[Rfam]
RNA sequence: CGGUGAGGUAGAGGCGCAAGCAAUAUGAGUAGCCAGCAAGAGAAUGACAACUGUGAUUGUUGGUAGAAGGAUUGUUUGCCGAAGCAUAAUAAGUGUCAACCUUAUUAUAGCUGGUACAUUUUUGAAUAAGAAAUGUACUGUCAUGCAGCAAGACGGAGUGUGCAUGGAGAACUACUGAUCGA
Numbered sequence: 001c002g003g004u005g006a007g008g009u010a011g012a013g014g015c016g017c018a019a020g021c022a023a024u025a026u027g028a029g030u031a032g033c034c035a036g037c038a039a040g041a042g043a044a045u046g047a048c049a050a051c052u053g054u055g056a057u058u059g060u061u062g063g064u065a066g067a068a069g070g071a072u073u074g075u076u077u078g079c080c081g082a083a084g085c086a087u088a089a090u091a092a093g094u095g096u097c098a099a100c101c102u103u104a105u106u107a108u109a110g111c112u113g114g115u116a117c118a119u120u121u122u123u124g125a126a127u128a129a130g131a132a133a134u135g136u137a138c139u140g141u142c143a144u145g146c147a148g149c150a151a152g153a154c155g156g157a158g159u160g161u162g163c164a165u166g167g168a169g170a171a172c173u174a175c176u177g178a179u180c181g182a
Stems, first nucleotide, its partner, number of pairs: 007176005016079009032064008083112003086108008113139011141167007
RNA: Lysine riboswitch aptamer
Organism: Virgibacillus sp. SK37